[Rfam]
RNA: U11 spliceosomal RNA
RNA sequence: AAGAAGGACUAUUGUCACGAGUGGCUCACAUAUGACAACUUGAUUACUCUAUGUGCAAAAUCCACAGCCAAGAUUUCAGAAGCAUAAUUUUUUGCUACGUGGGCACCUGGUGAUUAUUGUUCCUGGCACCUGU
Numbered sequence: 001a002a003g004a005a006g007g008a009c010u011a012u013u014g015u016c017a018c019g020a021g022u023g024g025c026u027c028a029c030a031u032a033u034g035a036c037a038a039c040u041u042g043a044u045u046a047c048u049c050u051a052u053g054u055g056c057a058a059a060a061u062c063c064a065c066a067g068c069c070a071a072g073a074u075u076u077c078a079g080a081a082g083c084a085u086a087a088u089u090u091u092u093u094g095c096u097a098c099g100u101g102g103g104c105a106c107c108u109g110g111u112g113a114u115u116a117u118u119g120u121u122c123c124u125g126g127c128a129c130c131u132g133u
Stems, first nucleotide, its partner, number of pairs: 009082002012079001014025004027055006034048001037045002058076005101131003107126004112122002115119001